A member of the RNA family "DUF3800-VII RNA", 89 nucleotides long.
RNA sequence: AGCGGCAGAUCUAGUAUAUAGAAGGUUGGCCGUAAGGUCAGCAGCAAGCUAAAGCUUGUGGGAUCCUUCUUCUAGAAUGCCGCUAUGUU
Numbered sequence: 001a002g003c004g005g006c007a008g009a010u011c012u013a014g015u016a017u018a019u020a021g022a023a024g025g026u027u028g029g030c031c032g033u034a035a036g037g038u039c040a041g042c043a044g045c046a047a048g049c050u051a052a053a054g055c056u057u058g059u060g061g062g063a064u065c066c067u068u069c070u071u072c073u074a075g076a077a078u079g080c081c082g083c084u085a086u087g088u089u
Stems, first nucleotide, its partner, number of pairs: 001084007010076005020070005025042007045058004

Rfam classes the family as a small RNA.